Shown here is a 71-nucleotide RNA sequence from Carnegiea gigantea, a member of the family "Plastid-ycf2 5UTR RNA".
The family's consensus secondary structure was predicted with LocARNA.
By type it is a cis-regulatory element.
The literature on the family includes a 2023 paper in Plant Commun by Richter et al., "Retrograde signaling in plants: A critical review focusing on the GUN pathway and beyond".
RNA sequence: GUGCAUCCAGUAGGAAUUGAACCGACGAAUUCACGAAUUAUGAGUUGGGUGCUUUAACCAUUCAUUCAUGG
Numbered sequence: 001g002u003g004c005a006u007c008c009a010g011u012a013g014g015a016a017u018u019g020a021a022c023c024g025a026c027g028a029a030u031u032c033a034c035g036a037a038u039u040a041u042g043a044g045u046u047g048g049g050u051g052c053u054u055u056a057a058c059c060a061u062u063c064a065u066u067c068a069u070g071g
Stems, first nucleotide, its partner, number of pairs: 007071002010026002013023002040069003044066001046064006